[Rfam]
RNA sequence: AACACGCUCCUUAGAUCCACCUCUGGGGAGUUUCUCCGCUCCGGUUCUGUUCUCUCUCUCUGGGAGCAGCAGGAUCGGGCCGGAGGCUCCCAGCAGCUUCAUUGCUGUACUGUCAGAGGUGCUUGAGUCAUUGGCGUGUGAGACCAGUCUACCUGCUUACCCAGCAUCCUCUCUGCCCUGAACCUUCACAGGAAAACGCCAGGGCAGAACCGCUGGAGAGCAGACAAA
Numbered sequence: 001a002a003c004a005c006g007c008u009c010c011u012u013a014g015a016u017c018c019a020c021c022u023c024u025g026g027g028g029a030g031u032u033u034c035u036c037c038g039c040u041c042c043g044g045u046u047c048u049g050u051u052c053u054c055u056c057u058c059u060c061u062g063g064g065a066g067c068a069g070c071a072g073g074a075u076c077g078g079g080c081c082g083g084a085g086g087c088u089c090c091c092a093g094c095a096g097c098u099u100c101a102u103u104g105c106u107g108u109a110c111u112g113u114c115a116g117a118g119g120u121g122c123u124u125g126a127g128u129c130a131u132u133g134g135c136g137u138g139u140g141a142g143a144c145c146a147g148u149c150u151a152c153c154u155g156c157u158u159a160c161c162c163a164g165c166a167u168c169c170u171c172u173c174u175g176c177c178c179u180g181a182a183c184c185u186u187c188a189c190a191g192g193a194a195a196a197c198g199c200c201a202g203g204g205c206a207g208a209a210c211c212g213c214u215g216g217a218g219a220g221c222a223g224a225c226a227a228a
Base pairs, nucleotide, nucleotide: 002139003138004137005136006135007134008133010127011126012125013124014123018121019120020119021118022117023116024115025114026091027090028089029088030087035084036083037082038081041078042077043076044075047072048071049070050069053065054064055063056062093108094107095106096105097104153223154222155221156220157219160216163214164213165212172208173207174206175205176204177203178202179201

This 228-nucleotide RNA from Anabarilius grahami belongs to the Rfam family "Small nucleolar RNA SNORA53". From the family's description: The snoRNA ACA53 belongs to the H/ACA family of pseudouridylation guide snoRNAs. Rfam classes the family as an H/ACA-box small nucleolar RNA. Its family is annotated with RNA processing and nucleolus in the Gene Ontology. NCBI's taxonomy places the organism under Eukaryota, Metazoa, Gnathostomata, Otomorpha, Anabarilius. Pairs were carried over by alignment from the consensus structure, which was predicted with RNAalifold.